Small nucleolar RNA SNORA40: a 130-nucleotide RNA from Otolemur garnettii.
The match comes from Rfam's covariance-model search (68 bits).
The family's consensus secondary structure was predicted with RNAalifold.
Rfam describes the family as follows. The snoRNA ACA 40 belongs to the H/ACA family of snoRNAs and guides the pseudouridylation of 28S rRNA subunit at position U4565. NB This family has a high threshold value to exclude a large number of closely related sequences that do not appear to have conserved H and ACA boxes, and may be pseudogenes.
Lineage of the source: Eukaryota > Opisthokonta > Deuterostomia > Primates > Otolemur.
The family's RNA type in Rfam is H/ACA-box small nucleolar RNA.

[Rfam]
RNA sequence: AGAACUUGUGUUUCUUUUUAACUUGUGGACAAAGACUUAAGGACAACUCCAAAAAAUAUAUUUGCUUUUGCAAUUCAGAACCCAGAACUCACUGUUUAGUGUGAGUUAUGAUACAUAUAAGGCUUAUAUG
Numbered sequence: 001a002g003a004a005c006u007u008g009u010g011u012u013u014c015u016u017u018u019u020a021a022c023u024u025g026u027g028g029a030c031a032a033a034g035a036c037u038u039a040a041g042g043a044c045a046a047c048u049c050c051a052a053a054a055a056a057u058a059u060a061u062u063u064g065c066u067u068u069u070g071c072a073a074u075u076c077a078g079a080a081c082c083c084a085g086a087a088c089u090c091a092c093u094g095u096u097u098a099g100u101g102u103g104a105g106u107u108a109u110g111a112u113a114c115a116u117a118u119a120a121g122g123c124u125u126a127u128a129u130g
Stems, first nucleotide, its partner, number of pairs: 002050001004048001006046004011041001015035004022027001060127002064123001066122005083110002086107007
Dot-bracket structure: .(.(.((((.(...((((...(....)....)))).....).)))).).).........((..(.(((((............((.(((((((........))))))).)).......))))))..))...